Shown here is a 96-nucleotide RNA from Canis lupus, a member of the family "mir-8799 microRNA precursor family". The match comes from Rfam's covariance-model search (52 bits). Gene Ontology terms of the family: miRNA-mediated post-transcriptional gene silencing and RISC complex. Clan: mir-8791 microRNA precursor clan. The source organism's lineage runs through Eukaryota, Opisthokonta, Sarcopterygii, Theria and Canis lupus.

RNA sequence: AGGGAGAGCGCUGGAACCUACGCUGUGUCCCCCAGCACCCUGGGCUCCUUGUGGUCCUGUGUUGCUGGAAUCGUGCUCCCGGCCGCGCAGCCCCCU
Numbered sequence: 001a002g003g004g005a006g007a008g009c010g011c012u013g014g015a016a017c018c019u020a021c022g023c024u025g026u027g028u029c030c031c032c033c034a035g036c037a038c039c040c041u042g043g044g045c046u047c048c049u050u051g052u053g054g055u056c057c058u059g060u061g062u063u064g065c066u067g068g069a070a071u072c073g074u075g076c077u078c079c080c081g082g083c084c085g086c087g088c089a090g091c092c093c094c095c096u
Stems, first nucleotide, its partner, number of pairs: 001096004006091001010088002012085003017082002022077001024075004028069002032067001033064006042057001044056001046054001